A member of the RNA family "Alphaproteobacterial ar15" from Endobacterium cereale, 107 nucleotides long. A search with the family's covariance model found it, with a score of 70 bits. Gene Ontology term of the family: protein binding. A reference for the family is del Val et al. (2012), "A survey of sRNA families in alpha-proteobacteria", RNA Biol. Pairs were carried over by alignment from the consensus structure.
RNA sequence: AGCCGGCCCCGUUGGUGACGCCCCUCGUCGCCAUUGCCGGCUGUUCCCCUCUGGAGGUUUUGAAACCUUCAUACCUACGGGCCGCGGUUCUUCCGUCGGCCCAUUUU
Dot-bracket structure: (((((.(.....(((...............)))..).))))).........(((((((......))))))).......(((((((((.....))).)))))).....